The family of this 160-nucleotide RNA sequence from Xenorhabdus cabanillasii is "STAXI RNA". Taxonomically the source falls in Xenorhabdus (Bacteria, Gammaproteobacteria, Enterobacterales, Morganellaceae). The match comes from Rfam's covariance-model search (50 bits).
RNA sequence: UAGCGUGGAAAAGUUUACGAAUGAUCCGGUCGCUUGUAAGGAUCACCUUCGGGCAGCGACAGCAACACUCCUGUAGCCUGCAAGGGAGUACACCACCGUGUGGUACAUCUGCGCACCUUUGGAAGCAGAUAUCGUCAGUCUGAUGACGAUGAAGGUUGUU
Numbered sequence: 001u002a003g004c005g006u007g008g009a010a011a012a013g014u015u016u017a018c019g020a021a022u023g024a025u026c027c028g029g030u031c032g033c034u035u036g037u038a039a040g041g042a043u044c045a046c047c048u049u050c051g052g053g054c055a056g057c058g059a060c061a062g063c064a065a066c067a068c069u070c071c072u073g074u075a076g077c078c079u080g081c082a083a084g085g086g087a088g089u090a091c092a093c094c095a096c097c098g099u100g101u102g103g104u105a106c107a108u109c110u111g112c113g114c115a116c117c118u119u120u121g122g123a124a125g126c127a128g129a130u131a132u133c134g135u136c137a138g139u140c141u142g143a144u145g146a147c148g149a150u151g152a153a154g155g156u157u158g159u160u
Base pairs, nucleotide, nucleotide: 002015003014004013006011023044024043025042026041027040029060030059031058032057033056034055046053047052067089068088069087070086071085073106074105075104077103078102090101091100092099108129109128110127111126112125115156116155117154118153119152131150132149133148134147135146136145137144